[Rfam]
Description:
The family of this 103-nucleotide RNA from Kroppenstedtia eburnea is "Guanidine-I riboswitch aptamer". NCBI's taxonomy places the organism under Bacteria, Bacillota, Caryophanales, Thermoactinomycetaceae, Kroppenstedtia.
RNA sequence: ACGAUGGUUUUCUAGGGUUCCGCAGCGUUGCUGGACUGGUCCGAGAGAAAACACACGACUGAUGUUUCAGUUGUGCACACGGAGGGACAAAAGCCCGGGAGGA
Numbered sequence: 001a002c003g004a005u006g007g008u009u010u011u012c013u014a015g016g017g018u019u020c021c022g023c024a025g026c027g028u029u030g031c032u033g034g035a036c037u038g039g040u041c042c043g044a045g046a047g048a049a050a051a052c053a054c055a056c057g058a059c060u061g062a063u064g065u066u067u068c069a070g071u072u073g074u075g076c077a078c079a080c081g082g083a084g085g086g087a088c089a090a091a092a093g094c095c096c097g098g099g100a101g102g103a
Base pairs, nucleotide, nucleotide: 007052008051009050010049011048012047015042016041020039021038022036023033024032025031026030054075055074056073057072058071059070060069078098080101084096085095086094
Pairs were carried over by alignment from the consensus structure.
This family represents a conserved RNA structure found upstream of the ykkC and yxkD genes in Bacillus subtilis and related genes in other bacteria. The function of this family is unclear although it has been suggested that it may function to switch on efflux pumps and detoxification systems in response to harmful environmental molecules.